[Rfam]
tRNA: a 72-nucleotide RNA sequence from Desulfuribacillus stibiiarsenatis. Rfam links the family to the GO term triplet codon-amino acid adaptor activity. The organism belongs to Desulfuribacillus, within Bacteria. It scores 61 bits against the family's covariance model.
RNA sequence: UGGGAAGUCGCCAAGCGGUAAGGCACCAGACUUUGACUCUGGCAUUCGUAGGUUCGAUCCCUGCCUUCCCAG
Numbered sequence: 001u002g003g004g005a006a007g008u009c010g011c012c013a014a015g016c017g018g019u020a021a022g023g024c025a026c027c028a029g030a031c032u033u034u035g036a037c038u039c040u041g042g043c044a045u046u047c048g049u050a051g052g053u054u055c056g057a058u059c060c061c062u063g064c065c066u067u068c069c070c071a072g
Stems, first nucleotide, its partner, number of pairs: 001071007010024003026042005048064005
Dot-bracket structure: (((((((..(((.........))).(((((.......))))).....(((((.......)))))))))))).